[Rfam]
RNA sequence: CCUUUGGAGUGUUAUAGCAAACAAGAGUAGUUAGUUUGAUUGAACGAUGAAAUUGGACACAGUGAAAAAGGAA
Numbered sequence: 001c002c003u004u005u006g007g008a009g010u011g012u013u014a015u016a017g018c019a020a021a022c023a024a025g026a027g028u029a030g031u032u033a034g035u036u037u038g039a040u041u042g043a044a045c046g047a048u049g050a051a052a053u054u055g056g057a058c059a060c061a062g063u064g065a066a067a068a069a070g071g072a073a
Base pairs, nucleotide, nucleotide: 001071002070003069004068005067009060010059011058012057013056022055023054024053030048031047032046034045035044
About this RNA:
RAGATH-18 RNA: a 73-nucleotide RNA. Rfam classes the family as a small RNA. About the family: Actinobacteria, Firmicutes, Fusobacteria, Thermotogae (1 example). The base pairs follow the family's consensus structure, which is taken from published work. Rfam's curators put it in the seed alignment.